[Rfam]
Shown here is a 132-nucleotide sequence from Krasilnikoviella flava, a member of the family "FMN riboswitch aptamer (RFN element)".
The RFN element is a highly conserved domain that is found frequently in the 5'-untranslated regions of prokaryotic mRNAs that encode for flavin mononucleotide (FMN) biosynthesis and transport proteins.
RNA sequence: GUACGUGCUCCGGGGUCGGUGAAAUUCCGAGCCGGCGGUGACAGCCCGCGACCCGGCCUCCCUCGGGAGGUCGGUUGAUCUGGUGGAACUCCAGGGCCGACGGUCAAAGUCCGGAUGGGAGGAAGCACGUGC
Numbered sequence: 001g002u003a004c005g006u007g008c009u010c011c012g013g014g015g016u017c018g019g020u021g022a023a024a025u026u027c028c029g030a031g032c033c034g035g036c037g038g039u040g041a042c043a044g045c046c047c048g049c050g051a052c053c054c055g056g057c058c059u060c061c062c063u064c065g066g067g068a069g070g071u072c073g074g075u076u077g078a079u080c081u082g083g084u085g086g087a088a089c090u091c092c093a094g095g096g097c098c099g100a101c102g103g104u105c106a107a108a109g110u111c112c113g114g115a116u117g118g119g120a121g122g123a124a125g126c127a128c129g130u131g132c
Stems, first nucleotide, its partner, number of pairs: 003130007010121001017029003031110002033099002035049004044097002053074002079095005101113003